This 76-nucleotide sequence from Ceratitis capitata belongs to the Rfam family "mir-980 microRNA precursor family".
Lineage of the source: Eukaryota > Mandibulata > Allotriocarida > Dicondylia > Ceratitis.
The match comes from Rfam's covariance-model search (62 bits).
Gene Ontology terms of the family: miRNA-mediated post-transcriptional gene silencing and RISC complex.

RNA sequence: AUUACAAGCCGGUCCAUCAUUUGGCAUUCUGACUGUAUUUGAUUGUUAGCUGCCUUGUGAAGGGCUUCCUUGUAAU
Numbered sequence: 001a002u003u004a005c006a007a008g009c010c011g012g013u014c015c016a017u018c019a020u021u022u023g024g025c026a027u028u029c030u031g032a033c034u035g036u037a038u039u040u041g042a043u044u045g046u047u048a049g050c051u052g053c054c055u056u057g058u059g060a061a062g063g064g065c066u067u068c069c070u071u072g073u074a075a076u
Stems, first nucleotide, its partner, number of pairs: 004073005011066005017060004023054002029049005